[Rfam]
RNA sequence: UAUUAAAUUUUUUAUCAAUUUUUAUUGUUAAAAACUGAUAUAGAUGACAAUAAUUAGACAGUUACAUGUGAUGUGUCAUGUGUACUUUAUAUUAACAUACAAAGACUAUUUUUUAACAGUAGAAAUGGAUGAAUUUUUUAAUA
Numbered sequence: 001u002a003u004u005a006a007a008u009u010u011u012u013u014a015u016c017a018a019u020u021u022u023u024a025u026u027g028u029u030a031a032a033a034a035c036u037g038a039u040a041u042a043g044a045u046g047a048c049a050a051u052a053a054u055u056a057g058a059c060a061g062u063u064a065c066a067u068g069u070g071a072u073g074u075g076u077c078a079u080g081u082g083u084a085c086u087u088u089a090u091a092u093u094a095a096c097a098u099a100c101a102a103a104g105a106c107u108a109u110u111u112u113u114u115a116a117c118a119g120u121a122g123a124a125a126u127g128g129a130u131g132a133a134u135u136u137u138u139u140a141a142u143a
Base pairs, nucleotide, nucleotide: 002142003141004140005139006138007137011133012132013131014130015129016128018126019125020124021123022122023121024120025119026118028116029115030114031113032112033111

The family of this 143-nucleotide sequence from Gossypium davidsonii is "MIR7502 microRNA precursor family".
Gene Ontology terms of the family: RISC complex and miRNA-mediated post-transcriptional gene silencing.